The record is a 159-nucleotide RNA from Streptomyces lunaelactis, which matches "Streptomyces sRNA scr5239" in Rfam. The base pairs follow the family's consensus structure, which is taken from published work. For this family Rfam cites "Identification of metE as a second target of the sRNA scr5239 in Streptomyces coelicolor" (Vockenhuber et al., PLoS One, 2015). Gene Ontology terms of the family: negative regulation of translation and mRNA binding.
[Rfam]
RNA sequence: CUUCCAUCCUCCCCGCACAGGAGGGUGGGAACGAGGCCCCGGCGCUCUCUGCCCUGACUGCGUCGAGACCUCCCACCCGGCCGCGCGGGACCGCACAUCCGCCGGCCGGAGAAACUCCGGGCUGCGGUGCCCGACGGGCCGAGGGUCCCGUCGCGGCGC
Numbered sequence: 001c002u003u004c005c006a007u008c009c010u011c012c013c014c015g016c017a018c019a020g021g022a023g024g025g026u027g028g029g030a031a032c033g034a035g036g037c038c039c040c041g042g043c044g045c046u047c048u049c050u051g052c053c054c055u056g057a058c059u060g061c062g063u064c065g066a067g068a069c070c071u072c073c074c075a076c077c078c079g080g081c082c083g084c085g086c087g088g089g090a091c092c093g094c095a096c097a098u099c100c101g102c103c104g105g106c107c108g109g110a111g112a113a114a115c116u117c118c119g120g121g122c123u124g125c126g127g128u129g130c131c132c133g134a135c136g137g138g139c140c141g142a143g144g145g146u147c148c149c150g151u152c153g154c155g156g157c158g159c
Base pairs, nucleotide, nucleotide: 003030004029005027006026008024009023010022011021012020033072034071035070036069040065041064042063044061045060046057047056077109078108079107080106081105082104083103087100088099089098114128115127116126118124119123132153133152134151135150136149137148138147